SAM riboswitch aptamer (S box leader): a 121-nucleotide RNA from Bacillus sp. THAF10. The family is grouped with related families in Rfam's "SAM clan".

Nucleotides: 121
Base pairs, nucleotide, nucleotide: 001121002120003119004118005117006116007115008114013042014041015040016039017038021031022030023029026088027087028086043081044080045079046078048077049076052071053070054069055068056067057066085113090109091108092107093106094105095104
Number, partner (000 for none) and nucleotide at each position: 001121u002120u003119c004118u005117u006116a007115u008114c009000c010000a011000g012000a013042g014041a015040g016039g017038u018000a019000g020000a021031g022030g023029g024000a025000a026088u027087g028086g029023c030022c031021c032000g033000a034000u035000g036000a037000c038017a039016c040015c041014u042013c043081a044080g045079c046078a047000a048077c049076c050000a051000g052071c053070a054069g055068c056067g057066c058000u059000c060000a061000g062000a063000a064000c065000a066057g067056c068055g069054u070053u071052g072000a073000a074000a075000a076049g077048g078046u079045g080044c081043u082000a083000a084000u085113u086028c087027c088026a089000g090109u091108g092107a093106g094105c095104a096000a097000u098000g099000u100000a101000g102000g103000u104095u105094g106093c107092u108091u109090g110000c111000a112000c113085a114008g115007a116006u117005g118004a119003g120002a121001a
Lineage of the source: Bacteria > Bacillota > Bacilli > Caryophanales > Bacillus.
The match comes from Rfam's covariance-model search (80 bits).
The SAM riboswitch is found upstream of a number of genes which code for proteins involved in methionine or cysteine biosynthesis in Gram-positive bacteria. The SAM riboswitch acts at the level of transcription termination control. The predicted structure consists of a complex stem-loop region followed by a single stem loop terminator region. An alternative and mutually exclusive form involves bases in the 3' segment of helix 1 with those in the 5' region of helix 5 to form a structure termed the anti-terminator form. This entry represents the conserved core of the complex structure involving helices 1-4.